[Rfam]
RNA sequence: CUCUCCGAAAUAGCUUUAGGGCUAGCCUUGAGCAACUAUGUAGCGGGGGUAGAGAGACUGAUUUGGUUUGGGGCCCUUCCCGGGGUACCCUGCUGAGCCAAACUCCGAAUACCGUUGCAACUAUCUCAGGAGUCAGUCCGCGGGGGAUAAGCUUCGCGGUCGAGAGGGAAACAACCCAGACUAUCUGCUAAGGUCCCGAAGUCAUACUCAGUCACUAAGGAAGUUGAAUUGCUGAGACAACCAGGAUGUUGGCUUAGAAGCAGCCACCAUUUAAAAAGUGCGUAACAGCUUACUGGUCGAGCAAUUCUGCGCCGAUAAUGAACGGGAGUAAGUAUGACACCGAAGCAGUAGAUUCAGUGAUCCUUCGGGUGAUCUGAGUGGUAGGAGAGCGCUGUACAUCAGAUACAAGGCGUACCGUAAGGAGCGCUGUCGGGGUGUACAGGUGAUUAU
Numbered sequence: 001c002u003c004u005c006c007g008a009a010a011u012a013g014c015u016u017u018a019g020g021g022c023u024a025g026c027c028u029u030g031a032g033c034a035a036c037u038a039u040g041u042a043g044c045g046g047g048g049g050u051a052g053a054g055a056g057a058c059u060g061a062u063u064u065g066g067u068u069u070g071g072g073g074c075c076c077u078u079c080c081c082g083g084g085g086u087a088c089c090c091u092g093c094u095g096a097g098c099c100a101a102a103c104u105c106c107g108a109a110u111a112c113c114g115u116u117g118c119a120a121c122u123a124u125c126u127c128a129g130g131a132g133u134c135a136g137u138c139c140g141c142g143g144g145g146g147a148u149a150a151g152c153u154u155c156g157c158g159g160u161c162g163a164g165a166g167g168g169a170a171a172c173a174a175c176c177c178a179g180a181c182u183a184u185c186u187g188c189u190a191a192g193g194u195c196c197c198g199a200a201g202u203c204a205u206a207c208u209c210a211g212u213c214a215c216u217a218a219g220g221a222a223g224u225u226g227a228a229u230u231g232c233u234g235a236g237a238c239a240a241c242c243a244g245g246a247u248g249u250u251g252g253c254u255u256a257g258a259a260g261c262a263g264c265c266a267c268c269a270u271u272u273a274a275a276a277a278g279u280g281c282g283u284a285a286c287a288g289c290u291u292a293c294u295g296g297u298c299g300a301g302c303a304a305u306u307c308u309g310c311g312c313c314g315a316u317a318a319u320g321a322a323c324g325g326g327a328g329u330a331a332g333u334a335u336g337a338c339a340c341c342g343a344a345g346c347a348g349u350a351g352a353u354u355c356a357g358u359g360a361u362c363c364u365u366c367g368g369g370u371g372a373u374c375u376g377a378g379u380g381g382u383a384g385g386a387g388a389g390c391g392c393u394g395u396a397c398a399u400c401a402g403a404u405a406c407a408a409g410g411c412g413u414a415c416c417g418u419a420a421g422g423a424g425c426g427c428u429g430u431c432g433g434g435g436u437g438u439a440c441a442g443g444u445g446a447u448u449a450u
Base pairs, nucleotide, nucleotide: 001389002388003387004386005385006384011024012023013022014021015020026132027130028129029128030127031126032125037123039119040118041117042116043115044114045113046112052106053104054103059100060099063096064095065094066093070089071088073086074085075084076083077082136161138159139158140157141156142155143154144153145152166177167176168175181351182350183349184348186347187346188345192341193340194339201338202337203336204335205334206333207332219313220312223310224309226307227306228305229304230303231302232301240297241296242295243294244293246270247269248268251265252264253263271275276291280289281288352379353378354377355376356375357374390445392442393441394440395439396438397437398436400434409428410427411426412425413424415422416421
RNA: Bacterial large subunit ribosomal RNA, nucleotides 846 to 1295
Organism: Adhaeretor mobilis